RNA sequence: CUGACAGAAGAGAGUGAGCACACGCAGGCAAUUGUAUGAAAAGCCAUACCUUUGCGGGUGCGUGCUCACUUCUCUUCUGUCAG
Numbered sequence: 001c002u003g004a005c006a007g008a009a010g011a012g013a014g015u016g017a018g019c020a021c022a023c024g025c026a027g028g029c030a031a032u033u034g035u036a037u038g039a040a041a042a043g044c045c046a047u048a049c050c051u052u053u054g055c056g057g058g059u060g061c062g063u064g065c066u067c068a069c070u071u072c073u074c075u076u077c078u079g080u081c082a083g
Base pairs, nucleotide, nucleotide: 001083002082003081004080005079006078007077008076009075010074011073012072013070014069015068016067017066018065019064020063021062023060024059025058
This 83-nucleotide RNA from Theobroma cacao belongs to the Rfam family "mir-156 microRNA precursor family". About the family: This family represents the plant microRNA (miRNA) precursor mir-156. The family's consensus secondary structure was predicted with PFOLD. A reference for the family is Ambros (2001), "microRNAs: tiny regulators with great potential", Cell.